Annotation
This 265-nucleotide RNA from Caldibacillus debilis belongs to the Rfam family "Bacterial large signal recognition particle RNA". It is annotated as a non-coding RNA gene. Pairs were carried over by alignment from the consensus structure, which is taken from published work. A reference for the family is Rosenblad et al. (2003), "SRPDB: Signal Recognition Particle Database", Nucleic Acids Res. Taxonomically the source falls in Caldibacillus debilis (Bacteria, Bacillati, Bacilli, Caldibacillus).
[Rfam]
RNA sequence: CCGUGCUAGGCGGGGAGGUAGCGGUGCCCUGUACCCGCAAUCCGCUCCAGCGGGGCUGAAUCCCUUCCUGAGGCUAACUAUCUGUAAGGCCAGUCUCCCAUAAGUGGUGUUGACGUUCGGGUCCUGUGCAAUGGAAAUCCACGAACCAUGUCAGGUCCGGAAGGAAGCAGCAUUAAGUGGAAGCUUCCAUGUGCCGCAGGGGUGCCUGAGCCGAGCUAACUGUGGGAUCAACGCUUAUGGAUGUUGGUCGAAGGAAGGUGCACGG
Numbered sequence: 001c002c003g004u005g006c007u008a009g010g011c012g013g014g015g016a017g018g019u020a021g022c023g024g025u026g027c028c029c030u031g032u033a034c035c036c037g038c039a040a041u042c043c044g045c046u047c048c049a050g051c052g053g054g055g056c057u058g059a060a061u062c063c064c065u066u067c068c069u070g071a072g073g074c075u076a077a078c079u080a081u082c083u084g085u086a087a088g089g090c091c092a093g094u095c096u097c098c099c100a101u102a103a104g105u106g107g108u109g110u111u112g113a114c115g116u117u118c119g120g121g122u123c124c125u126g127u128g129c130a131a132u133g134g135a136a137a138u139c140c141a142c143g144a145a146c147c148a149u150g151u152c153a154g155g156u157c158c159g160g161a162a163g164g165a166a167g168c169a170g171c172a173u174u175a176a177g178u179g180g181a182a183g184c185u186u187c188c189a190u191g192u193g194c195c196g197c198a199g200g201g202g203u204g205c206c207u208g209a210g211c212c213g214a215g216c217u218a219a220c221u222g223u224g225g226g227a228u229c230a231a232c233g234c235u236u237a238u239g240g241a242u243g244u245u246g247g248u249c250g251a252a253g254g255a256a257g258g259u260g261c262a263c264g265g
Stems, first nucleotide, its partner, number of pairs: 001265006009057003012030004017025001019023001034054005063258007072249005079243010093229001096227006104220002106217003115211008123200006129191002132189005138181005148173004156165003